A member of the RNA family "Alphaproteobacteria transfer-messenger RNA" from Aestuariivirga litoralis, 362 nucleotides long. Its Rfam clan is "tRNA clan".
RNA sequence: UCCCUUCCCUUCGCCCGGGGCGGCCCCUAUAUUUGAGCUGUCACGCCGCAAGGCAUGACUAUGGCGAUAAACGGUGAUCGUAAUAAACCUUUCGGACCCGGGGGCAGUACCCGGCGCCUCCACCACAGACCGCUGCGGGACAGCGGCCUCUGCUGGGGGCGAACCAGGAUCGACGAGGGUGUAAAGGGUUGCUUUUUGCCCGUGAUGGUACCGACGUUAUCGGGCUAAACAUAUAGUUGCCAACGACAACUAUGCUCCGGUCGCGGUGGCUGCGUAAGCAGCCUGAGCAACCGAAAUCAAAGUCCUUGGGCUUAGCCGCUUAAGGCGGGGUUCGCCGGCACCUGGCAACAGAAGCCGGCACU
Number, nucleotide and partner (000 for none) at each position: 001u000002c000003c000004c000005u000006u000007c000008c000009c000010u000011u000012c000013g000014c000015c000016c000017g000018g000019g000020g000021c000022g000023g000024c000025c000026c000027c000028u000029a000030u000031a000032u000033u000034u000035g000036a000037g000038c000039u000040g059041u058042c057043a056044c000045g000046c000047c000048g000049c000050a000051a000052g000053g000054c000055a000056u043057g042058a041059c040060u000061a000062u000063g200064g199065c198066g197067a196068u000069a000070a000071a000072c000073g193074g192075u191076g190077a189078u188079c187080g000081u000082a000083a000084u000085a000086a000087a000088c179089c178090u177091u000092u176093c175094g174095g000096a000097c000098c114099c113100g112101g111102g110103g000104g000105c000106a000107g000108u000109a000110c102111c101112c100113g099114g098115c161116g160117c159118c158119u157120c156121c155122a000123c000124c000125a000126c000127a000128g000129a000130c000131c000132g000133c000134u000135g000136c000137g000138g000139g000140a000141c000142a000143g000144c000145g000146g000147c000148c000149u000150c000151u000152g000153c000154u000155g121156g120157g119158g118159g117160c116161g115162a000163a000164c000165c000166a000167g000168g000169a000170u000171c000172g000173a000174c094175g093176a092177g090178g089179g088180u000181g000182u000183a000184a000185a000186g000187g079188g078189u077190u076191g075192c074193u073194u000195u000196u067197u066198g065199c064200c063201c216202g215203u214204g000205a000206u227207g226208g225209u000210a000211c223212c222213g000214a203215c202216g201217u000218u000219a000220u000221c000222g212223g211224g000225c208226u207227a206228a000229a000230c000231a000232u000233a000234u000235a000236g000237u000238u000239g000240c000241c000242a000243a000244c000245g000246a000247c000248a000249a000250c000251u000252a000253u000254g000255c000256u000257c000258c000259g000260g000261u000262c000263g000264c000265g000266g000267u000268g000269g000270c000271u000272g000273c000274g000275u000276a000277a000278g000279c000280a000281g000282c000283c000284u000285g000286a000287g000288c000289a000290a000291c000292c000293g000294a000295a000296a000297u000298c000299a000300a000301a000302g000303u000304c000305c000306u000307u000308g000309g000310g000311c000312u000313u000314a000315g000316c000317c000318g000319c000320u000321u000322a000323a000324g000325g000326c000327g000328g343329g342330g341331u340332u000333c000334g359335c358336c357337g356338g355339c354340a331341c330342c329343u328344g000345g000346c000347a000348a000349c000350a000351g000352a000353a000354g339355c338356c337357g336358g335359c334360a000361c000362u000
On this family, see Williams, Nucleic Acids Res 2002: "The tmRNA Website: invasion by an intron".